[Rfam]
RNA sequence: UUUGGGUACGAUGAUGUUUGUUUCAUAAACUGCGUUAUCUAUCUGCAAAACCCUUUCAUCGGGAUUUGAAGAAAAUCUACAAAACUGAGACCCUGA
Numbered sequence: 001u002u003u004g005g006g007u008a009c010g011a012u013g014a015u016g017u018u019u020g021u022u023u024c025a026u027a028a029a030c031u032g033c034g035u036u037a038u039c040u041a042u043c044u045g046c047a048a049a050a051c052c053c054u055u056u057c058a059u060c061g062g063g064a065u066u067u068g069a070a071g072a073a074a075a076u077c078u079a080c081a082a083a084a085c086u087g088a089g090a091c092c093c094u095g096a
Stems, first nucleotide, its partner, number of pairs: 001096002004093004
The family of this 96-nucleotide RNA from Kalanchoe fedtschenkoi is "Small nucleolar RNA snoR27".
Gene Ontology terms of the family: RNA processing and nucleolus.
Clan: snR68 clan.
For this family Rfam cites "Multiple snoRNA gene clusters from Arabidopsis" (Brown et al., RNA, 2001).
The family's RNA type in Rfam is C/D-box small nucleolar RNA.
Taxonomically the source falls in Kalanchoe (Eukaryota, Streptophytina, Tracheophyta, Magnoliopsida).